The family of this 211-nucleotide sequence is "lysM-Actino RNA".
Rfam's curators put it in the seed alignment.

RNA sequence: AACGAUGCCCGGUUCUACCGCACGUCCCCACGUGAGGAUGCGCCUCUGCCGUCUACCCCGCAAUACGCGACUAUGGCGGAAGCGCGAAUCACGUGGAUAGCCGCUCACAUGGUAGAGCCUCGACAAGUAAUCAAUUUGUUAAAACGGGUGAGCGGUAACGCUAUGAAGCUCCGGGGACGGAGUGAGCGUGGAUGGCCUUAUUUGGAGCAUU
Numbered sequence: 001a002a003c004g005a006u007g008c009c010c011g012g013u014u015c016u017a018c019c020g021c022a023c024g025u026c027c028c029c030a031c032g033u034g035a036g037g038a039u040g041c042g043c044c045u046c047u048g049c050c051g052u053c054u055a056c057c058c059c060g061c062a063a064u065a066c067g068c069g070a071c072u073a074u075g076g077c078g079g080a081a082g083c084g085c086g087a088a089u090c091a092c093g094u095g096g097a098u099a100g101c102c103g104c105u106c107a108c109a110u111g112g113u114a115g116a117g118c119c120u121c122g123a124c125a126a127g128u129a130a131u132c133a134a135u136u137u138g139u140u141a142a143a144a145c146g147g148g149u150g151a152g153c154g155g156u157a158a159c160g161c162u163a164u165g166a167a168g169c170u171c172c173g174g175g176g177a178c179g180g181a182g183u184g185a186g187c188g189u190g191g192a193u194g195g196c197c198u199u200a201u202u203u204g205g206a207g208c209a210u211u
Stems, first nucleotide, its partner, number of pairs: 005210004024193004028096003032092004039086005045080002049076004059069003100156009168183006